small nucleolar RNA snoR134: a 146-nucleotide RNA sequence from Citrus sinensis. A search with the family's covariance model found it, with a score of 116 bits. On this family, see Chen and Wu, Nucleic Acids Res 2009: "Mining small RNA sequencing data: a new approach to identify small nucleolar RNAs in Arabidopsis". Gene Ontology terms of the family: RNA processing and nucleolus. The family's consensus secondary structure was predicted with RNAalifold.
RNA sequence: CUGCACGACGCUACCCCGGGCUUCUCUGAAGUUCAAAAGUGACGAAGAAGCCCCAAUGCUUGUGCUAAAUCGCCGCCGUUAAGUGUUGCAGUUUAGCCUCUUUUUUUCUUCCACGGCUCAUCUGUGUCAAAGUAACGGCCAAAUCC
Numbered sequence: 001c002u003g004c005a006c007g008a009c010g011c012u013a014c015c016c017c018g019g020g021c022u023u024c025u026c027u028g029a030a031g032u033u034c035a036a037a038a039g040u041g042a043c044g045a046a047g048a049a050g051c052c053c054c055a056a057u058g059c060u061u062g063u064g065c066u067a068a069a070u071c072g073c074c075g076c077c078g079u080u081a082a083g084u085g086u087u088g089c090a091g092u093u094u095a096g097c098c099u100c101u102u103u104u105u106u107u108c109u110u111c112c113a114c115g116g117c118u119c120a121u122c123u124g125u126g127u128c129a130a131a132g133u134a135a136c137g138g139c140c141a142a143a144u145c146c
Stems, first nucleotide, its partner, number of pairs: 003065006010059002018053007025045002075139007084129002087126005096117003